[Rfam]
RNA: mir-263 microRNA precursor family
Organism: Argiope bruennichi
Nucleotides: 081
Stems, first nucleotide, its partner, number of pairs: 003079008013069006021061002025057003029054006
Number, partner (000 for none) and nucleotide at each position: 001000a002000g003079u004078u005077u006076a007075c008074u009073u010072u011000u012000a013069a014068u015067g016066g017065c018064a019000c020000u021061g022060g023000a024000a025057g026056a027055a028000u029054u030053c031052a032051c033050g034049g035000a036000u037000u038000a039000c040000g041000u042000u043000u044000c045000a046000g047000c048000u049034c050033c051032g052031u053030g054029g055027u056026u057025u058000c059000u060022c061021c062000u063000g064018u065017g066016c067015u068014a069013u070000a071000a072010g073009a074008a075007g076006u077005g078004g079003a080000c081000u